[Rfam]
A member of the RNA family "BsrF" from Weizmannia acidilactici, 114 nucleotides long.
The organism belongs to Heyndrickxia, within Bacteria.
RNA sequence: GCGAUGAGCUGAAAUGCGUAAGCCGGCAAGGCCCUGUUACAGGGUGCAUAAUGUGGAGUGCAGUCUUUGCCGCCGCAUCGAAUGUUUAAAAAAGCGCCCCGGAUCGGGCGCUUU
Numbered sequence: 001g002c003g004a005u006g007a008g009c010u011g012a013a014a015u016g017c018g019u020a021a022g023c024c025g026g027c028a029a030g031g032c033c034c035u036g037u038u039a040c041a042g043g044g045u046g047c048a049u050a051a052u053g054u055g056g057a058g059u060g061c062a063g064u065c066u067u068u069g070c071c072g073c074c075g076c077a078u079c080g081a082a083u084g085u086u087u088a089a090a091a092a093a094g095c096g097c098c099c100c101g102g103a104u105c106g107g108g109c110g111c112u113u114u
Stems, first nucleotide, its partner, number of pairs: 014078005024072008034043002045062002048059002091114009